[Rfam]
RNA sequence: GUAUGACACGCCUUUGGCGUGUCUCCUCCCUGAACCUUGGCCACCGCGUGCUUGCACGCGGUGGUUUUUUUUAUUCGGC
Numbered sequence: 001g002u003a004u005g006a007c008a009c010g011c012c013u014u015u016g017g018c019g020u021g022u023c024u025c026c027u028c029c030c031u032g033a034a035c036c037u038u039g040g041c042c043a044c045c046g047c048g049u050g051c052u053u054g055c056a057c058g059c060g061g062u063g064g065u066u067u068u069u070u071u072u073a074u075u076c077g078g079c
Stems, first nucleotide, its partner, number of pairs: 008020004041064009
Rfam assigns this 79-nucleotide sequence from Sphingomonas sp. BK345 to the family "Makes More Granules Regulator RNA (mmgR)". About the family: SuhB later renamed mmgR (makes more granules regulator) was a putative non-coding RNA found multiple times in the Agrobacterium tumefaciens genome and related alpha-proteobacteria. Other non-coding RNAs uncovered in the same analysis include: speF, ybhL, metA, and serC.Several studies inSinorhizobium meliloti showed that suhB element is indeed a non-coding RNA:firstly it was detected on Northern blot and called Sm8RNA, secondly in an RNAseq study referred to as SmelC689.The mutant phenotype's (strain lacking the small RNA) cytoplasm contains higher content of polyhydroxybutyrate (PBH)storage granules than wild type strain. The sRNA is required to limit the PBH intracellular accumulation when the nitrogen-fixing Sinorhizobium meliloti is under condition of surplus carbon in relation to nitrogen. It scores 42 bits against the family's covariance model. Rfam 15.1 lists 1,791 matches to the family in 918 species. A reference for the family is Schluter et al. (2010), "A genome-wide survey of sRNAs in the symbiotic nitrogen-fixing alpha-proteobacterium Sinorhizobium meliloti", BMC Genomics. It is annotated as a small RNA. The source organism's lineage runs through Bacteria, Pseudomonadota, Alphaproteobacteria, Sphingomonadales and Sphingomonas. Its Rfam clan is "suhB sRNA clan".